Shown here is a 223-nucleotide sequence from Streptomyces sp. W1SF4, a member of the family "Streptomyces sRNA 4677". Located in the intergenic region between anti-sigma factor SCO4677 gene and a putative regulatory protein gene SCO4676. scr4677 expression requires the SCO4677 activity and scr4677 sRNA itself seem to affect the levels of the SCO4676-associated transcripts. Lineage of the source: Bacteria > Bacillati > Actinomycetes > Streptomycetaceae > Streptomyces. For this family Rfam cites "Complex intra-operonic dynamics mediated by a small RNA in Streptomyces coelicolor" (Hindra et al., PLoS One, 2014). Rfam classes the family as a small RNA. Pairs were carried over by alignment from the consensus structure.
RNA sequence: GGACCCGGCGACCCUCGACAUCCUUUAAGUACCGGGGUAAAACCCACCAACCCACCCCCCCAACCCCCGCGCUCACUCGCUCGGGUGAACCGUGCCAACUGGGCUGGAUUUCGGGGUGGUUGCCGGGCAUAUGCUCGCCGCACAACAUCAGACAUGAGACGGCCCCCGCCGGGACUGGCAUCCCGGGCGAGGGCCUGACCAACGAGGAAGCAGUACCUUCCCA
Numbered sequence: 001g002g003a004c005c006c007g008g009c010g011a012c013c014c015u016c017g018a019c020a021u022c023c024u025u026u027a028a029g030u031a032c033c034g035g036g037g038u039a040a041a042a043c044c045c046a047c048c049a050a051c052c053c054a055c056c057c058c059c060c061c062a063a064c065c066c067c068c069g070c071g072c073u074c075a076c077u078c079g080c081u082c083g084g085g086u087g088a089a090c091c092g093u094g095c096c097a098a099c100u101g102g103g104c105u106g107g108a109u110u111u112c113g114g115g116g117u118g119g120u121u122g123c124c125g126g127g128c129a130u131a132u133g134c135u136c137g138c139c140g141c142a143c144a145a146c147a148u149c150a151g152a153c154a155u156g157a158g159a160c161g162g163c164c165c166c167c168g169c170c171g172g173g174a175c176u177g178g179c180a181u182c183c184c185g186g187g188c189g190a191g192g193g194c195c196u197g198a199c200c201a202a203c204g205a206g207g208a209a210g211c212a213g214u215a216c217c218u219u220c221c222c223a
Stems, first nucleotide, its partner, number of pairs: 001200001007060002010057001073088006103139001105137003161195005167189003171184004206221005